Nucleotides: 103
Stems, first nucleotide, its partner, number of pairs: 006091005011053004016047001017040003059084004065078004
Number, partner (000 for none) and nucleotide at each position: 001000c002000g003000g004000a005000c006091g007090a008089a009088a010087c011053a012052g013051g014050g015000g016047u017040g018039c019038c020000u021000c022000c023000a024000u025000c026000g027000u028000g029000c030000a031000g032000a033000u034000g035000g036000c037000c038019g039018g040017c041000u042000g043000a044000g045000a046000a047016a048000c049000a050014c051013c052012c053011u054000c055000c056000g057000c058000a059084c060083c061082c062081g063000a064000u065078c066077c067076a068075g069000a070000u071000c072000a073000u074000g075068c076067u077066g078065g079000c080000g081062u082061g083060g084059g085000g086000a087010g088009u089008u090007u091006u092000c093000a094000c095000c096000g097000g098000c099000g100000c101000a102000g103000c

Rfam assigns this 103-nucleotide RNA sequence from Acidovorax sp. HDW3 to the family "TPP riboswitch aptamer (THI element)". Lineage of the source: Bacteria > Pseudomonadati > Pseudomonadota > Burkholderiales > Acidovorax. Pairs were carried over by alignment from the consensus structure, which is taken from published work. The match comes from Rfam's covariance-model search (56 bits).